Record summary: This 80-nucleotide RNA from Sus scrofa belongs to the Rfam family "mir-181 microRNA precursor family". For this family Rfam cites "microRNAs: tiny regulators with great potential" (Ambros, Cell, 2001). The organism belongs to Sus, within Eukaryota. It is one of the family's seed sequences.
Nucleotides: 080
Stems, first nucleotide, its partner, number of pairs: 001076005011067008023057006030050003
Number, partner (000 for none) and nucleotide at each position: 001076u002075c003074a004073c005072a006000a007000u008000c009000a010000a011067c012066a013065u014064u015063c016062a017061u018060u019000g020000u021000u022000g023057u024056c025055g026054g027053u028052g029000g030050g031049u032048u033000g034000u035000g036000a037000g038000a039000c040000g041000g042000a043000g044000g045000c046000c047000a048032g049031a050030c051000c052028c053027a054026c055025c056024g057023a058000g059000g060018g061017a062016u063015g064014a065013a066012u067011g068000u069000c070000a071000c072005u073004g074003u075002g076001g077000c078000u079000g080000g